[Rfam]
RNA sequence: UGGCUGUAGCUAUAUGAAUUCAAUUUGAGUGGUUUACUGGCCGGUUGUCGUUCUACUGUCGAUUCAUCUGCUUACCGAACUUCUUACAUUC
Numbered sequence: 001u002g003g004c005u006g007u008a009g010c011u012a013u014a015u016g017a018a019u020u021c022a023a024u025u026u027g028a029g030u031g032g033u034u035u036a037c038u039g040g041c042c043g044g045u046u047g048u049c050g051u052u053c054u055a056c057u058g059u060c061g062a063u064u065c066a067u068c069u070g071c072u073u074a075c076c077g078a079a080c081u082u083c084u085u086a087c088a089u090u091c
Stems, first nucleotide, its partner, number of pairs: 027085003031081004039072003043068003047063004